[Rfam]
RNA sequence: AUUCAUCUUCGGGGCAGGGUGAAAUUCCCGACCGGCGGUGAUAGGACGCAAGGUCCUUAAGCCCGCGAGCCUUUAUGGCAGGAUUUGGUGAGAUUCCAAAGCCGACAGUUACAGUCUGGAUGGGAGAAGAUGAAG
Numbered sequence: 001a002u003u004c005a006u007c008u009u010c011g012g013g014g015c016a017g018g019g020u021g022a023a024a025u026u027c028c029c030g031a032c033c034g035g036c037g038g039u040g041a042u043a044g045g046a047c048g049c050a051a052g053g054u055c056c057u058u059a060a061g062c063c064c065g066c067g068a069g070c071c072u073u074u075a076u077g078g079c080a081g082g083a084u085u086u087g088g089u090g091a092g093a094u095u096c097c098a099a100a101g102c103c104g105a106c107a108g109u110u111a112c113a114g115u116c117u118g119g120a121u122g123g124g125a126g127a128a129g130a131u132g133a134a135g
Base pairs, nucleotide, nucleotide: 003133004132005131006130007129008128009127010126017029018028019027031115032114033104034103035066036065037064038063061102062101071078084100085099086098087097088096106118107117108116
RNA: FMN riboswitch aptamer (RFN element)
Organism: Caldibacillus debilis